Overview:
The family of this 470-nucleotide part of an RNA from Cercocebus atys is "Eukaryotic large subunit ribosomal RNA". The source organism's lineage runs through Eukaryota, Amniota, Euarchontoglires, Primates and Cercocebus. The match comes from Rfam's covariance-model search (2262 bits).
RNA sequence: GGUGGUAGCAAAUAUUCAAACGAGAACUUUGAAAGCUGAAGUGGAAAGGGUUCCAUGUGAACAGCAGUUGAACAUGGGUCAGUCGGUCCUGAGAGAUGGGCGAGCGCCGUUCCAAAGGGACGGGCGAUGGCCUCCAUUGCCCUCAGCCGAUCGAAAGGGAGUCGGGUUCAGAUCCCCGAAUCCAGAGUGGCAGAGAUGGGCGCCACGAGGCGUCCAGUGCGGUAACGCGACCGAUCCCGGAGAAGCCAGCGGGAGCCCCGGGGAGAGUUCUCUUUUCUUUGUGAAGGACAGGGCGCCCUGGAAUGGGUUCACCCCGAGAGGGGCCUGUGCCUUGGAAAGGGUCGUGGUUCCGGCGGCAUCUGAUGAGCUCUUACUGGCCCUUGAAAAUCUGGGGGGAGAAGGUGUAAAUCUCGCGCCGGGCCGUACCCAUAUCCGCAGCAGGUCUCCAAGGUGAACAGCCUCUGGCAUGU
Numbered sequence: 001g002g003u004g005g006u007a008g009c010a011a012a013u014a015u016u017c018a019a020a021c022g023a024g025a026a027c028u029u030u031g032a033a034a035g036c037u038g039a040a041g042u043g044g045a046a047a048g049g050g051u052u053c054c055a056u057g058u059g060a061a062c063a064g065c066a067g068u069u070g071a072a073c074a075u076g077g078g079u080c081a082g083u084c085g086g087u088c089c090u091g092a093g094a095g096a097u098g099g100g101c102g103a104g105c106g107c108c109g110u111u112c113c114a115a116a117g118g119g120a121c122g123g124g125c126g127a128u129g130g131c132c133u134c135c136a137u138u139g140c141c142c143u144c145a146g147c148c149g150a151u152c153g154a155a156a157g158g159g160a161g162u163c164g165g166g167u168u169c170a171g172a173u174c175c176c177c178g179a180a181u182c183c184a185g186a187g188u189g190g191c192a193g194a195g196a197u198g199g200g201c202g203c204c205a206c207g208a209g210g211c212g213u214c215c216a217g218u219g220c221g222g223u224a225a226c227g228c229g230a231c232c233g234a235u236c237c238c239g240g241a242g243a244a245g246c247c248a249g250c251g252g253g254a255g256c257c258c259c260g261g262g263g264a265g266a267g268u269u270c271u272c273u274u275u276u277c278u279u280u281g282u283g284a285a286g287g288a289c290a291g292g293g294c295g296c297c298c299u300g301g302a303a304u305g306g307g308u309u310c311a312c313c314c315c316g317a318g319a320g321g322g323g324c325c326u327g328u329g330c331c332u333u334g335g336a337a338a339g340g341g342u343c344g345u346g347g348u349u350c351c352g353g354c355g356g357c358a359u360c361u362g363a364u365g366a367g368c369u370c371u372u373a374c375u376g377g378c379c380c381u382u383g384a385a386a387a388u389c390u391g392g393g394g395g396g397a398g399a400a401g402g403u404g405u406a407a408a409u410c411u412c413g414c415g416c417c418g419g420g421c422c423g424u425a426c427c428c429a430u431a432u433c434c435g436c437a438g439c440a441g442g443u444c445u446c447c448a449a450g451g452u453g454a455a456c457a458g459c460c461u462c463u464g465g466c467a468u469g470u
Stems, first nucleotide, its partner, number of pairs: 015033006034468001035466003043447003048427002053077006062070002084423003088158002093152002095111003099108003119144002162179005182419002185416001206413005218229004236393006245378004251372006259362002262280005285333003289329001296322003304316004341357005433442002449461004